[Rfam]
RNA sequence: UAAAUAUUAAUAUAUUUAACUCAUAUAUCCCUUGAAUAUGGCAAGGAGUAUCUACCGGAAACCAAGAAUUUCUGACUAUGAGUAAAAUUGGUAUACUU
Numbered sequence: 001u002a003a004a005u006a007u008u009a010a011u012a013u014a015u016u017u018a019a020c021u022c023a024u025a026u027a028u029c030c031c032u033u034g035a036a037u038a039u040g041g042c043a044a045g046g047a048g049u050a051u052c053u054a055c056c057g058g059a060a061a062c063c064a065a066g067a068a069u070u071u072c073u074g075a076c077u078a079u080g081a082g083u084a085a086a087a088u089u090g091g092u093a094u095a096c097u098u
Stems, first nucleotide, its partner, number of pairs: 019083007030046005056074006
Dot-bracket structure: ..................(((((((....(((((.......))))).........((((((.......))))))..)))))))...............
Background:
Rfam assigns this 98-nucleotide RNA from Clostridium argentinense to the family "Purine riboswitch aptamer". A search with the family's covariance model found it, with a score of 72 bits. The family's consensus secondary structure is taken from published work. Rfam describes the family as follows. Riboswitches are metabolite binding domains within certain messenger RNAs that serve as precision sensors for their corresponding targets. Allosteric rearrangement of mRNA structure is mediated by ligand binding, and this results in modulation of gene expression. A class of riboswitches that selectively recognises guanine and becomes saturated at concentrations as low as 5 nM. In Bacillus subtilis, this mRNA motif is located on at least five separate transcriptional units that together encode 17 genes that are mostly involved in purine transport and purine nucleotide biosynthesis.